The record is a 99-nucleotide RNA sequence from Leptolyngbya sp. FACHB-261, which matches "TPP riboswitch aptamer (THI element)" in Rfam. The organism belongs to Leptolyngbya, within Bacteria.
RNA sequence: CCGACAAGCUAGGGGUGCCUGGGUCAAACCAGGCUGAGAUUACACCCUUAGAACCUGAGACCGGGUCAUACCGGCGGAGGGAAGCUGUUUAUUGAGGAC
Numbered sequence: 001c002c003g004a005c006a007a008g009c010u011a012g013g014g015g016u017g018c019c020u021g022g023g024u025c026a027a028a029c030c031a032g033g034c035u036g037a038g039a040u041u042a043c044a045c046c047c048u049u050a051g052a053a054c055c056u057g058a059g060a061c062c063g064g065g066u067c068a069u070a071c072c073g074g075c076g077g078a079g080g081g082a083a084g085c086u087g088u089u090u091a092u093u094g095a096g097g098a099c
Stems, first nucleotide, its partner, number of pairs: 007086004011048004016042001017034005054080003061074004